Shown here is an 87-nucleotide sequence from Hibiscus trionum, a member of the family "MIR397 microRNA precursor family". Rfam links the family to the GO terms RISC complex and miRNA-mediated post-transcriptional gene silencing. The match comes from Rfam's covariance-model search (78 bits). On this family, see Wu et al., Plant Cell 2009: "Rice MicroRNA effector complexes and targets".
RNA sequence: GGAAGAAACGUCAUUGAGUGCAGCGUUGAUGAAAUCUUUUACUUUUCUGAGAUGAAUUCACCGGCGCUGCAUUCAAUCACGUUUCUU
Numbered sequence: 001g002g003a004a005g006a007a008a009c010g011u012c013a014u015u016g017a018g019u020g021c022a023g024c025g026u027u028g029a030u031g032a033a034a035u036c037u038u039u040u041a042c043u044u045u046u047c048u049g050a051g052a053u054g055a056a057u058u059c060a061c062c063g064g065c066g067c068u069g070c071a072u073u074c075a076a077u078c079a080c081g082u083u084u085c086u087u
Stems, first nucleotide, its partner, number of pairs: 006084006013077016030060003